RNA sequence: ACUGUGUAGGUUUAAAUCCACACACGUAUCGACACGCUUUUCUGGGUGCCUUUUGGUAGGUUGGAAUGCGGGAUGCGUGGAGGCAUAAC
Numbered sequence: 001a002c003u004g005u006g007u008a009g010g011u012u013u014a015a016a017u018c019c020a021c022a023c024a025c026g027u028a029u030c031g032a033c034a035c036g037c038u039u040u041u042c043u044g045g046g047u048g049c050c051u052u053u054u055g056g057u058a059g060g061u062u063g064g065a066a067u068g069c070g071g072g073a074u075g076c077g078u079g080g081a082g083g084c085a086u087a088a089c
Stems, first nucleotide, its partner, number of pairs: 023079008035070003039066004048061004
A member of the RNA family "t44 RNA" from Thiopseudomonas alkaliphila, 89 nucleotides long. The source organism's lineage runs through Bacteria, Pseudomonadota, Gammaproteobacteria, Pseudomonadales and Thiopseudomonas. By type it is a small RNA. Pairs were carried over by alignment from the consensus structure, which was predicted with LocARNA. About the family: This family consists of a number of bacterial RNA genes of between 135 and 170 bases in length. The t44 gene has been identified in several species of enteric bacteria but homologs have also been identified in Pseudomonas and Coxiella species. The t44 gene is found between the map and rpsB genes in all species in the full alignment apart from Shigella flexneri. The function of this RNA is unknown.